[Rfam]
RNA sequence: UCAGGCGGCCGGGCAGCCGCUUCCGUCCAGUGCCGAAAGGCGGGCGGGAGAGGAAAGUCCGGGCUCCAUGGAGGCAGGGUGCCGGGGAAAUCCCGGCGGGCCGGGGUUCAAGCCCCGGUUCAGGGACAGCGCCGCAGAAAUCAGACCGCCGGGCCUUCGUGUCCGGCAAGGGUGAAACGGUGGGGUAAGAGCCCACCGCCCCGACCGCAAGGAAGGGGGCACGGCAAGCCCCACCCGGAGCAAGACCGAAUAGGGACGGGCGUCCGCUUCGCGCGGGCAGGUGCGCCUCUGCAUUCCGUCCGGGUAGGUCGCUGGAGGUGGCGUGCAAGCGCCAUCCAAGAGGAAUGGCUGCCGCUUCUUUCCAUAUCGGAAAGAAUGGCACAGAACCCGGCUUACAGGCCGCCUGACACU
Number, nucleotide and partner (000 for none) at each position: 001u407002c406003a405004g404005g403006c402007g401008g400009c399010c398011g396012g353013g352014c351015a350016g349017c348018c347019g000020c050021u049022u048023c047024c046025g045026u044027c043028c042029a000030g000031u000032g000033c000034c000035g000036a000037a000038a000039g000040g000041c000042g028043g027044g026045c025046g024047g023048g022049a021050g020051a000052g000053g000054a000055a394056a393057g392058u000059c391060c390061g389062g388063g387064c240065u239066c238067c237068a000069u000070g000071g000072a000073g288074g287075c000076a000077g236078g235079g234080u233081g232082c096083c095084g094085g093086g092087g000088a000089a000090a000091u000092c086093c085094c084095g083096g082097c123098g121099g120100g119101c118102c117103g116104g115105g114106g113107u112108u000109c000110a000111a000112g107113c106114c105115c104116c103117g102118g101119u100120u099121c098122a000123g097124g231125g230126a000127c000128a000129g229130c228131g225132c224133c223134g000135c000136a000137g000138a000139a000140a000141u000142c000143a000144g000145a000146c171147c170148g167149c166150c165151g164152g163153g162154c161155c000156u000157u000158c000159g000160u000161g154162u153163c152164c151165g150166g149167c148168a000169a000170g147171g146172g000173u000174g000175a000176a000177a000178c000179g197180g196181u195182g194183g193184g192185g000186u000187a000188a000189g000190a000191g000192c184193c183194c182195a181196c180197c179198g220199c218200c217201c216202c215203g000204a000205c212206c211207g000208c000209a000210a000211g206212g205213a000214a000215g202216g201217g200218g199219g000220c198221a000222c000223g133224g132225c131226a000227a000228g130229c129230c125231c124232c081233a080234c079235c078236c077237g067238g066239a065240g064241c000242a000243a000244g310245a309246c308247c307248g000249a000250a000251u000252a000253g000254g301255g300256a299257c298258g297259g296260g000261c000262g000263u000264c000265c000266g000267c000268u000269u000270c000271g000272c000273g000274c000275g000276g000277g000278c000279a000280g294281g000282u293283g292284c291285g000286c000287c074288u073289c000290u000291g284292c283293a282294u280295u000296c259297c258298g257299u256300c255301c254302g000303g000304g000305u000306a000307g247308g246309u245310c244311g000312c000313u000314g000315g000316a000317g336318g335319u334320g333321g332322c331323g330324u329325g000326c000327a000328a000329g324330c323331g322332c321333c320334a319335u318336c317337c000338a000339a000340g000341a000342g000343g000344a000345a000346u000347g018348g017349c016350u015351g014352c013353c012354g000355c000356u000357u000358c000359u000360u000361u000362c000363c000364a000365u000366a000367u000368c000369g000370g000371a000372a000373a000374g000375a000376a000377u000378g000379g000380c000381a000382c000383a000384g000385a000386a000387c063388c062389c061390g060391g059392c057393u056394u055395a000396c011397a000398g010399g009400c008401c007402g006403c005404c004405u003406g002407a001408c000409a000410c000411u000
The family of this 411-nucleotide RNA sequence from Glycocaulis alkaliphilus is "Bacterial RNase P class A". Its family is annotated with dimeric ribonuclease P complex, ribonuclease P activity and tRNA processing in the Gene Ontology. The source organism's lineage runs through Bacteria, Pseudomonadati, Pseudomonadota, Maricaulaceae and Glycocaulis.